Shown here is a 262-nucleotide RNA sequence from Octodon degus, a member of the family "Mason-Pfizer monkey virus packaging signal". A search with the family's covariance model found it, with a score of 105 bits. The base pairs follow the family's consensus structure, which was predicted with PFOLD. The family's RNA type in Rfam is cis-regulatory element.

RNA sequence: UGGUGCCCAGCGUGGAUCGAGAACUGGGCAUUUCAUGAGGGAUGCCAUUCGAAGAACUGUCAUAGAAGUUAGAAUAGAGGAUCUGUCAACGCGGGAACCUGCUGCGUUUUCCAGGCCUCGAUAAGUGAACGGUGAUUAUGGGUCAUGAAAUCAGCCAGCAUGAAAUGUUUGUUGAAAGUUUAAGUAAGGCUUUAAAGGCACAAGGAAUAAAGGUUAAAAUGAAGGAUUUGUGUCAAUAUUUUGAAUAUAUUAAACAUGGUUU
Numbered sequence: 001u002g003g004u005g006c007c008c009a010g011c012g013u014g015g016a017u018c019g020a021g022a023a024c025u026g027g028g029c030a031u032u033u034c035a036u037g038a039g040g041g042a043u044g045c046c047a048u049u050c051g052a053a054g055a056a057c058u059g060u061c062a063u064a065g066a067a068g069u070u071a072g073a074a075u076a077g078a079g080g081a082u083c084u085g086u087c088a089a090c091g092c093g094g095g096a097a098c099c100u101g102c103u104g105c106g107u108u109u110u111c112c113a114g115g116c117c118u119c120g121a122u123a124a125g126u127g128a129a130c131g132g133u134g135a136u137u138a139u140g141g142g143u144c145a146u147g148a149a150a151u152c153a154g155c156c157a158g159c160a161u162g163a164a165a166u167g168u169u170u171g172u173u174g175a176a177a178g179u180u181u182a183a184g185u186a187a188g189g190c191u192u193u194a195a196a197g198g199c200a201c202a203a204g205g206a207a208u209a210a211a212g213g214u215u216a217a218a219a220u221g222a223a224g225g226a227u228u229u230g231u232g233u234c235a236a237u238a239u240u241u242u243g244a245a246u247a248u249a250u251u252a253a254a255c256a257u258g259g260u261u262u
Base pairs, nucleotide, nucleotide: 006028007027008026012024013023034044035043036042080119081118083115084114088110090106091105092104093103094102125146126145127144128143130142133140134139151194153192154190155189156188201243202242203241204240205239207237208236211229212228213227214226215225